[Rfam]
RNA: XIST RNA A repeat
Organism: Chinchilla lanigera
Nucleotides: 037
Base pairs, nucleotide, nucleotide: 003014004013005012006011017026018025019024
Number, partner (000 for none) and nucleotide at each position: 001000u002000u003014g004013c005012c006011c007000a008000a009000c010000g011006g012005g013004g014003c015000u016000g017026u018025g019024g020000a021000u022000a023000c024019c025018u026017g027000c028000c029000u030000u031000a032000a033000a034000u035000u036000u037000a